A member of the RNA family "Bacterial large subunit ribosomal RNA" from Allobrachymonas denitrificans, 440 nucleotides of a longer RNA. The base pairs follow the family's consensus structure, which is taken from published work. The family is grouped with related families in Rfam's "LSU clan".
RNA sequence: CUCUCCGAAAACUAUUUAGGUAGUGCCUCAAGUAUUACCGACGGGGGUAGAGCACUGUUUUGGCUAGGGGGUCAUGGCGACUUACCAAACCAAGGCAAACUCCGAAUACCGUUGAGUACAGCUUGGGAGACAGAGCACCGGGUGCUAACGUCCGGACUCAAGAGGGAAACAACCCAGACCGCCAGCUAAGGUCCCUAAAAUUGGCUAAGUGGGAAACGAAGUGGGAAGGCUAAAACAGUCAGGAUGUUGGCUUAGAAGCAGCCAUCAUUUAAAGAAAGCGUAAUAGCUCACUGAUCGAGUCGUCCUGCGCGGAAGAUGUAACGGGGCUAAGCCAGUUACCGAAGCUGCGGAUGCACAGUUUACUGUGCGUGGUAGGAGAGCGUUCUGUAAGCCUGUGAAGGUGCGUUGUAAAGCGUGCUGGAGGUAUCAGAAGUGCGAAU
Number, nucleotide and partner (000 for none) at each position: 001c380002u379003c378004u377005c376006c375007g000008a000009a000010a000011a024012c023013u022014a021015u020016u000017u000018a000019g000020g015021u014022a013023g012024u011025g000026c129027c127028u126029c125030a124031a123032g122033u121034a000035u000036u120037a117038c116039c114040g113041a112042c111043g110044g109045g000046g000047g000048u000049a000050g103051a101052g100053c000054a000055c000056u097057g096058u095059u000060u093061u092062g091063g090064c000065u000066a000067g086068g085069g083070g082071g081072u080073c079074a000075u000076g000077g000078c000079g073080a072081c071082u070083u069084a000085c068086c067087a000088a000089a000090c063091c062092a061093a060094g000095g058096c057097a056098a000099a000100c052101u051102c000103c050104g000105a000106a000107u000108a000109c044110c043111g042112u041113u040114g039115a000116g038117u037118a000119c000120a036121g033122c032123u031124u030125g029126g028127g027128a000129g026130a000131c000132a000133g159134a158135g157136c000137a000138c155139c154140g153141g152142g151143u150144g000145c000146u000147a000148a000149c000150g143151u142152c141153c140154g139155g138156a000157c135158u134159c133160a000161a000162g000163a000164g175165g174166g173167a000168a000169a000170c000171a000172a000173c166174c165175c164176a000177g000178a000179c350180c349181g348182c347183c000184a346185g345186c344187u000188a000189a000190g340191g339192u338193c000194c000195c000196u000197a000198a000199a337200a336201u335202u334203g333204g332205c331206u000207a000208a000209g000210u000211g000212g000213g000214a000215a000216a000217c311218g310219a000220a000221g308222u307223g306224g305225g304226a303227a000228g301229g300230c299231u000232a000233a000234a000235a000236c000237a000238g295239u294240c293241a292242g291243g000244a268245u267246g266247u000248u000249g263250g262251c261252u000253u000254a000255g000256a000257a000258g000259c000260a000261g251262c250263c249264a000265u000266c246267a245268u244269u273270u000271a000272a000273a269274g289275a000276a000277a000278g287279c286280g000281u000282a000283a000284u000285a000286g279287c278288u000289c274290a000291c242292u241293g240294a239295u238296c000297g000298a000299g230300u229301c228302g000303u226304c225305c224306u223307g222308c221309g000310c218311g217312g000313a000314a000315g000316a000317u000318g000319u000320a000321a000322c000323g000324g000325g000326g000327c000328u000329a000330a000331g205332c204333c203334a202335g201336u200337u199338a192339c191340c190341g000342a000343a000344g186345c185346u184347g182348c181349g180350g179351a370352u369353g368354c367355a366356c365357a364358g363359u000360u000361u000362a000363c358364u357365g356366u355367g354368c353369g352370u351371g000372g000373u000374a000375g006376g005377a004378g003379a002380g001381c435382g000383u432384u431385c430386u429387g428388u000389a000390a000391g425392c424393c423394u000395g000396u000397g000398a000399a000400g419401g418402u417403g416404c415405g414406u413407u412408g000409u000410a000411a000412a407413g406414c405415g404416u403417g402418c401419u400420g000421g000422a000423g393424g392425u391426a000427u000428c387429a386430g385431a384432a383433g000434u000435g381436c000437g000438a000439a000440u000